[Rfam]
Shown here is a 207-nucleotide RNA from Burkholderia vietnamiensis, a member of the family "Burkholderia sRNA 1".
On this family, see Stubben et al., BMC Genomics 2014: "Differential expression of small RNAs from Burkholderia thailandensis in response to varying environmental and stress conditions".
Rfam classes the family as a small RNA.
Trans-encoded, exhibits differential expression profiles dependent on growth phase and cell stimuli, such as antbiotics and serum.
It is one of the family's seed sequences.
Pairs were carried over by alignment from the consensus structure, which was predicted with RNAfold.

RNA sequence: AAAAGUUCUACGGGGUAGCAGAAAACAAAGCGCGGGGUUGGCGUAGCCGGCACGUAAUCAGCGUGCCGGCCGCGGAGUGUCUGCAUGCACGGCGGGGCCAAACAUCGUCGUACAGCACAUGCAUGCGGCAGAUUUAGCGGUAUAAGCGACGUUCCGUCGUCCGACCGGGGGAAGCAGCAAUCGGGCGGCGGCGGACGUUUUUUCAUC
Numbered sequence: 001a002a003a004a005g006u007u008c009u010a011c012g013g014g015g016u017a018g019c020a021g022a023a024a025a026c027a028a029a030g031c032g033c034g035g036g037g038u039u040g041g042c043g044u045a046g047c048c049g050g051c052a053c054g055u056a057a058u059c060a061g062c063g064u065g066c067c068g069g070c071c072g073c074g075g076a077g078u079g080u081c082u083g084c085a086u087g088c089a090c091g092g093c094g095g096g097g098c099c100a101a102a103c104a105u106c107g108u109c110g111u112a113c114a115g116c117a118c119a120u121g122c123a124u125g126c127g128g129c130a131g132a133u134u135u136a137g138c139g140g141u142a143u144a145a146g147c148g149a150c151g152u153u154c155c156g157u158c159g160u161c162c163g164a165c166c167g168g169g170g171g172a173a174g175c176a177g178c179a180a181u182c183g184g185g186c187g188g189c190g191g192c193g194g195a196c197g198u199u200u201u202u203u204c205a206u207c
Base pairs, nucleotide, nucleotide: 001202002201003200004199005198006197008037009036011034012033014031042074043073044072046070047069048068049067050066051065052064053063054062055061078130079129080128081127083126084125085124086123087122095108097106135151138148139147141145153195154194155193156192157191158190159189161188162187163186165184166183167182